[Rfam]
RNA: TUC338
Organism: Chelonoidis abingdonii
RNA sequence: UUGACAACCCUGGACACUGAUGGCCUCUUUAUCUACAGAGCAGAUACAACCCAGGCACCAGCAGUGCAAACUUCAGCCACACUGCCUCCUGCAGUGUGCCUCAACUUUGACCUGGAGAGACCAUCUCUAGGGGUGAGGGAGCGUUCAGUCUCCUUAGUCUAUUCAGUCCUUGGCGCCU
Numbered sequence: 001u002u003g004a005c006a007a008c009c010c011u012g013g014a015c016a017c018u019g020a021u022g023g024c025c026u027c028u029u030u031a032u033c034u035a036c037a038g039a040g041c042a043g044a045u046a047c048a049a050c051c052c053a054g055g056c057a058c059c060a061g062c063a064g065u066g067c068a069a070a071c072u073u074c075a076g077c078c079a080c081a082c083u084g085c086c087u088c089c090u091g092c093a094g095u096g097u098g099c100c101u102c103a104a105c106u107u108u109g110a111c112c113u114g115g116a117g118a119g120a121c122c123a124u125c126u127c128u129a130g131g132g133g134u135g136a137g138g139g140a141g142c143g144u145u146c147a148g149u150c151u152c153c154u155u156a157g158u159c160u161a162u163u164c165a166g167u168c169c170u171u172g173g174c175g176c177c178u
Stems, first nucleotide, its partner, number of pairs: 002165003007158002012153003016149005025139004030135004036109003040105001046101001050098001052096002061085004112130007